[Rfam]
RNA sequence: CAGCAUGUUUUCAAGGGCUGUGACUGGCUGCAGCCAUGGGAUCUCCAACUGCAUGUGAGAGCAAUGUGGAGAGAGACUGACAGCUCAGGUUCGUGUAGUAUUUAUGCUGUCACUCACCUUUCCCAUAAUA
Numbered sequence: 001c002a003g004c005a006u007g008u009u010u011u012c013a014a015g016g017g018c019u020g021u022g023a024c025u026g027g028c029u030g031c032a033g034c035c036a037u038g039g040g041a042u043c044u045c046c047a048a049c050u051g052c053a054u055g056u057g058a059g060a061g062c063a064a065u066g067u068g069g070a071g072a073g074a075g076a077c078u079g080a081c082a083g084c085u086c087a088g089g090u091u092c093g094u095g096u097a098g099u100a101u102u103u104a105u106g107c108u109g110u111c112a113c114u115c116a117c118c119u120u121u122c123c124c125a126u127a128a129u130a
Stems, first nucleotide, its partner, number of pairs: 011039002016035007068123006083110002087103003
RNA: Small nucleolar RNA SNORA44
Organism: Cnephaeus nilssonii